Description
The family of this 167-nucleotide RNA from Paenibacillus nanensis is "c-di-AMP riboswitch aptamer (ydaO/yuaA leader)". It scores 87 bits against the family's covariance model. The organism belongs to Paenibacillus, within Bacteria.
RNA sequence: UAAACAACAUCGCUUAGUUUUUCCUUUUGGAAAAAGCGGGGGAACCAACAAGCAGGCCGGCAGCCGCCGUGUUUGCUGGGGUGAAUCCGGGGAUUUGUGCCCCCGGUAGGGUCUACUCUCUAGCCCGAAUCCGACAGCUAACCUCGUAUGCGAACAAAGGAGAGAUG
Numbered sequence: 001u002a003a004a005c006a007a008c009a010u011c012g013c014u015u016a017g018u019u020u021u022u023c024c025u026u027u028u029g030g031a032a033a034a035a036g037c038g039g040g041g042g043a044a045c046c047a048a049c050a051a052g053c054a055g056g057c058c059g060g061c062a063g064c065c066g067c068c069g070u071g072u073u074u075g076c077u078g079g080g081g082u083g084a085a086u087c088c089g090g091g092g093a094u095u096u097g098u099g100c101c102c103c104c105g106g107u108a109g110g111g112u113c114u115a116c117u118c119u120c121u122a123g124c125c126c127g128a129a130u131c132c133g134a135c136a137g138c139u140a141a142c143c144u145c146g147u148a149u150g151c152g153a154a155c156a157a158a159g160g161a162g163a164g165a166u167g
Stems, first nucleotide, its partner, number of pairs: 011152003018035007036147006046078002079132003087106006109126004